[Rfam]
RNA sequence: CGUAGGUCAACCCUGCAAUGGGAUGGGAUCCGAAACCCUCCGAAGGAUAAUAUAGGCUCUGCCAUCCAACUCCUAUUCCGACGCGUCCUCGUCGUGCAGAGUGGUAACAUGUGCCUACAUAUAUCCUAGCUUGGGUACACGGGCUAGAUCCAACCCCUUGGGCAGAUGGUGGCAUAUGGCGAACCAGGAGGGG
Numbered sequence: 001c002g003u004a005g006g007u008c009a010a011c012c013c014u015g016c017a018a019u020g021g022g023a024u025g026g027g028a029u030c031c032g033a034a035a036c037c038c039u040c041c042g043a044a045g046g047a048u049a050a051u052a053u054a055g056g057c058u059c060u061g062c063c064a065u066c067c068a069a070c071u072c073c074u075a076u077u078c079c080g081a082c083g084c085g086u087c088c089u090c091g092u093c094g095u096g097c098a099g100a101g102u103g104g105u106a107a108c109a110u111g112u113g114c115c116u117a118c119a120u121a122u123a124u125c126c127u128a129g130c131u132u133g134g135g136u137a138c139a140c141g142g143g144c145u146a147g148a149u150c151c152a153a154c155c156c157c158u159u160g161g162g163c164a165g166a167u168g169g170u171g172g173c174a175u176a177u178g179g180c181g182a183a184c185c186a187g188g189a190g191g192g193g
Stems, first nucleotide, its partner, number of pairs: 009102001012099001021067006028060001030056002071193004076189002079187001083095003087104002108178008118168001123167003131153006155162002
Description: drz-agam-2-2 ribozyme: a 193-nucleotide RNA sequence from Anopheles gambiae. Rfam links the family to the GO term catalytic activity. Taxonomically the source falls in Anopheles gambiae (Eukaryota, Allotriocarida, Neoptera, Cellia). The base pairs follow the family's consensus structure, which is taken from published work.